[Rfam]
RNA: MIR2619 microRNA precursor family
RNA sequence: AAACAGUCAUCUAUGUAUUGGAUCUUUGACAGUUUUUGGCACCCAAGGCCACUUUUGACUUAGUCUUCGCUGACGUGGCACCCACAUAUCUUAAGUGAGGUGCCACGUGUCGACCAUUGUGGGUGCCACGUCAGCGAAGACUAAGUUAAAAGUGGCCUUGGGGUCAAAACUGCCAAAGAUCCAAUACAUAGGGGGUUGUUU
Numbered sequence: 001a002a003a004c005a006g007u008c009a010u011c012u013a014u015g016u017a018u019u020g021g022a023u024c025u026u027u028g029a030c031a032g033u034u035u036u037u038g039g040c041a042c043c044c045a046a047g048g049c050c051a052c053u054u055u056u057g058a059c060u061u062a063g064u065c066u067u068c069g070c071u072g073a074c075g076u077g078g079c080a081c082c083c084a085c086a087u088a089u090c091u092u093a094a095g096u097g098a099g100g101u102g103c104c105a106c107g108u109g110u111c112g113a114c115c116a117u118u119g120u121g122g123g124u125g126c127c128a129c130g131u132c133a134g135c136g137a138a139g140a141c142u143a144a145g146u147u148a149a150a151a152g153u154g155g156c157c158u159u160g161g162g163g164u165c166a167a168a169a170c171u172g173c174c175a176a177a178g179a180u181c182c183a184a185u186a187c188a189u190a191g192g193g194g195g196u197u198g199u200u201u
Stems, first nucleotide, its partner, number of pairs: 001201002004198005012190017030172005036167005042162005073131002076128008